[Rfam]
RNA sequence: CCGCCCGUCGCUGCCCGGAACUGAGCAAUAUCGAGAGGCAGGAAGAGAUAUAAAUAAUUUUAUAUUUUUUAUGUUAAAUCCUUCCAAUCGCUGUUGUUUGAACCGGGCAAAAGUCGUAACAAGGUUUUCGUAGGUGAACCUGCGAAAGGAUCAUUU
Numbered sequence: 001c002c003g004c005c006c007g008u009c010g011c012u013g014c015c016c017g018g019a020a021c022u023g024a025g026c027a028a029u030a031u032c033g034a035g036a037g038g039c040a041g042g043a044a045g046a047g048a049u050a051u052a053a054a055u056a057a058u059u060u061u062a063u064a065u066u067u068u069u070u071a072u073g074u075u076a077a078a079u080c081c082u083u084c085c086a087a088u089c090g091c092u093g094u095u096g097u098u099u100g101a102a103c104c105g106g107g108c109a110a111a112a113g114u115c116g117u118a119a120c121a122a123g124g125u126u127u128u129c130g131u132a133g134g135u136g137a138a139c140c141u142g143c144g145a146a147a148g149g150a151u152c153a154u155u156u
Stems, first nucleotide, its partner, number of pairs: 001123001003120001006116002009113001012109007021100001023099008032090003037085002040082004047075008056066003125148010
This 156-nucleotide part of an RNA from Strongyloides ratti belongs to the Rfam family "Eukaryotic small subunit ribosomal RNA". Pairs were carried over by alignment from the consensus structure, which is taken from published work. NCBI's taxonomy places the organism under Eukaryota, Protostomia, Ecdysozoa, Nematoda, Strongyloides. Rfam links the family to the GO terms structural constituent of ribosome and ribosome. A reference for the family is Cannone et al. (2002), "The comparative RNA web (CRW) site: an online database of comparative sequence and structure information for ribosomal, intron, and other RNAs", BMC Bioinformatics.